[Rfam]
Rfam assigns this 582-nucleotide part of an RNA from Campylobacter upsaliensis to the family "Bacterial small subunit ribosomal RNA".

RNA sequence: AGACGGGGACCCGCACAAGCGGUGGAGCAUGUGGUUUAAUUCGAAGAUACGCGAAGAACCUUACCUAGGCUUGAUAUCCAACAAAUCCAUUAGAGAUAGUGGAGUGCUAGCUUGCUAGAAUGUUGAGACAGGUGCUGCACGGCUGUCGUCAGCUCGUGUCGUGAGAUGUUGGGUUAAGUCCCGCAACGAGCGCAACCCUCGUCCUUAGUUGCUAACAGUUCGGCUGAGCACUCUAAGGAGACUGCCUUCGUAAGGAGGAGGAAGGUGGGGACGACGUCAAGUCAUCAUGGCCCUUACGCCUAGGGCGACACACGUGCUACAAUGGCAUAUACAAUGAGACGCAAUACCGCGAGGUGGAGCAAAUCUAUAAAAUAUGUCCCAGUUCGGAUUGUUCUCUGCAACUCGAGAGCAUGAAGCCGGAAUCGCUAGUAAUCGCAAAUCAGCCAUGUUGCGGUGAAUACGUUCCCGGGUCUUGUACUCACCGCCCGUCACACCAUGGGAGUUGAUUUCACUCGAAGUGGAAAUACUAAAUGAGUUAUCCCCCACAGUGGAAUCAGCGACUGGGGUGAAGUCGUAACAAGG
Numbered sequence: 001a002g003a004c005g006g007g008g009a010c011c012c013g014c015a016c017a018a019g020c021g022g023u024g025g026a027g028c029a030u031g032u033g034g035u036u037u038a039a040u041u042c043g044a045a046g047a048u049a050c051g052c053g054a055a056g057a058a059c060c061u062u063a064c065c066u067a068g069g070c071u072u073g074a075u076a077u078c079c080a081a082c083a084a085a086u087c088c089a090u091u092a093g094a095g096a097u098a099g100u101g102g103a104g105u106g107c108u109a110g111c112u113u114g115c116u117a118g119a120a121u122g123u124u125g126a127g128a129c130a131g132g133u134g135c136u137g138c139a140c141g142g143c144u145g146u147c148g149u150c151a152g153c154u155c156g157u158g159u160c161g162u163g164a165g166a167u168g169u170u171g172g173g174u175u176a177a178g179u180c181c182c183g184c185a186a187c188g189a190g191c192g193c194a195a196c197c198c199u200c201g202u203c204c205u206u207a208g209u210u211g212c213u214a215a216c217a218g219u220u221c222g223g224c225u226g227a228g229c230a231c232u233c234u235a236a237g238g239a240g241a242c243u244g245c246c247u248u249c250g251u252a253a254g255g256a257g258g259a260g261g262a263a264g265g266u267g268g269g270g271a272c273g274a275c276g277u278c279a280a281g282u283c284a285u286c287a288u289g290g291c292c293c294u295u296a297c298g299c300c301u302a303g304g305g306c307g308a309c310a311c312a313c314g315u316g317c318u319a320c321a322a323u324g325g326c327a328u329a330u331a332c333a334a335u336g337a338g339a340c341g342c343a344a345u346a347c348c349g350c351g352a353g354g355u356g357g358a359g360c361a362a363a364u365c366u367a368u369a370a371a372a373u374a375u376g377u378c379c380c381a382g383u384u385c386g387g388a389u390u391g392u393u394c395u396c397u398g399c400a401a402c403u404c405g406a407g408a409g410c411a412u413g414a415a416g417c418c419g420g421a422a423u424c425g426c427u428a429g430u431a432a433u434c435g436c437a438a439a440u441c442a443g444c445c446a447u448g449u450u451g452c453g454g455u456g457a458a459u460a461c462g463u464u465c466c467c468g469g470g471u472c473u474u475g476u477a478c479u480c481a482c483c484g485c486c487c488g489u490c491a492c493a494c495c496a497u498g499g500g501a502g503u504u505g506a507u508u509u510c511a512c513u514c515g516a517a518g519u520g521g522a523a524a525u526a527c528u529a530a531a532u533g534a535g536u537u538a539u540c541c542c543c544c545a546c547a548g549u550g551g552a553a554u555c556a557g558c559g560a561c562u563g564g565g566g567u568g569a570a571g572u573c574g575u576a577a578c579a580a581g582g
Base pairs, nucleotide, nucleotide: 001479002478003476004475005474007473008472009471010470011469012468013467015463016462019426020425021424022423023422024320026318027317028316029315030314031313032312033311034309035308040055041054042053043052064304065303066302067301068300069299070298077128078127079125080124081123082122083121086103087102088101089100090099091098092097105120107118108117109116110115131293132292134291135290136289137288141286142282143281144280145278147276148275152191153190154189155188156187157186158167159166160165170183171182172181173180197270198269199268200267202239203238204237205236206235207234208233212228213227216226217225218224242261243260245258246257247256248255249254324378325377326376327375328374329373330372337366338365341360342359346355347354348353385416390411391410392409393408394407395406396405432455433454434453435452436451437450438449482581484578487574488573492568493567494566495565497563498562499561502558503557504556505555506554507553508552509551510550511549512548513547518543520541521540522539526536527535528534
Background
Rfam links the family to the GO terms structural constituent of ribosome and ribosome. Its Rfam clan is "SSU clan". Taxonomically the source falls in Campylobacter upsaliensis (Bacteria, Pseudomonadati, Epsilonproteobacteria, Campylobacterales).